[Rfam]
RNA sequence: UCUACCUUAUUUUUGUAACUCAAUGAAAAAUACACAAAACAUAUCUUGGUGGUGGAGCUCUCUUAAUUUAUAAGUGAGAACUAAACCUAUAUGUAUAUAAUAUACCAAAAAAGGCUUAUC
Numbered sequence: 001u002c003u004a005c006c007u008u009a010u011u012u013u014u015g016u017a018a019c020u021c022a023a024u025g026a027a028a029a030a031u032a033c034a035c036a037a038a039a040c041a042u043a044u045c046u047u048g049g050u051g052g053u054g055g056a057g058c059u060c061u062c063u064u065a066a067u068u069u070a071u072a073a074g075u076g077a078g079a080a081c082u083a084a085a086c087c088u089a090u091a092u093g094u095a096u097a098u099a100a101u102a103u104a105c106c107a108a109a110a111a112a113g114g115c116u117u118a119u120c
Stems, first nucleotide, its partner, number of pairs: 034098001036096001039094006048087003055081001058078003063073003
Dot-bracket structure: .................................(.(..((((((...(((....(..(((..(((.....)))..)))..)...))).)))))).).)......................
RNA: Bacteroidete tryptophan peptide leader RNA